Bacterial RNase P class A: a 444-nucleotide sequence from Clostridium thermosuccinogenes. NCBI's taxonomy places the organism under Bacteria, Bacillota, Clostridia, Clostridiaceae, Clostridium. The match comes from Rfam's covariance-model search (293 bits). Ribonuclease P (RNase P) is a ubiquitous endoribonuclease, found in archaea, bacteria and eukarya as well as chloroplasts and mitochondria. It is annotated as a ribozyme.

RNA sequence: UGAGUAAGCCAGACAGUUGCGUAUACAGUGCCGAAAGGCCGUAUAUGAGGAAAGUCCGGGCUCCACAGGGCAAGGUGCCGGGUAACUCCCGGUGAAGGCGACUUCAAGGAAAGUGCAACAGAGAUAUACCGCGUUCCAGGGAGCAGAAAACAGGGAUCGGAGAGCAGAAAAUUCUUAGUUCAGAUGCGUUCAAAGCUAUUUCUUAAUCUGAUUUCCGGCAUCUGUUUUCUGUUCUCUGGAGCGUAAGGGUGGAAAGGUGAGGUAAGAGCUCACCAGCGGCAUGGCGACUUGCCGGUCUAUGUAAACCCCACCUGGAGCAACACCGUAGAGGGACGUUAAAGGUUGCCCGCCUGUCCCGAGUAGGUGGCUUGAGCAUUGCAGAAAUGUAAUGCCUAGAUAGAUGACUGUCUAAUACAGAACCCGGCUUAUAGACUUACUCAUAUC
Dot-bracket structure: ((((((((.(((((((((.(((((((.(..........).)))))))....[[[.[[[[[((((...[[[[.((((((((((.....)))))(((((....)))).)((...(((((...........((((((((((((((((((((((((((..................................................................))))))))))))))))))))))))..)).......((((((.......)))))).((.(((.(....).)))..).)..)))..)))))))))))))...((((.....((((((.....(((.]]]]))))))))).....))))......((((((((....))))))))..........)))))))..........]]]]]]]].).).))))))))....